[Rfam]
RNA sequence: UAAUCGAAUGUUAUUCGUUUUCGUAUAAUUCUGUGAAUAUGGACAGAAGUUUCUACCCGAAGACCGUAAAUCUUUGGACUACGAGAAUGAUGCUUAAGGAU
Numbered sequence: 001u002a003a004u005c006g007a008a009u010g011u012u013a014u015u016c017g018u019u020u021u022c023g024u025a026u027a028a029u030u031c032u033g034u035g036a037a038u039a040u041g042g043a044c045a046g047a048a049g050u051u052u053c054u055a056c057c058c059g060a061a062g063a064c065c066g067u068a069a070a071u072c073u074u075u076g077g078a079c080u081a082c083g084a085g086a087a088u089g090a091u092g093c094u095u096a097a098g099g100a101u
Stems, first nucleotide, its partner, number of pairs: 018087008029048006057077007
Shown here is a 101-nucleotide RNA from Paenibacillus aquistagni, a member of the family "Purine riboswitch aptamer". The family's consensus secondary structure is taken from published work.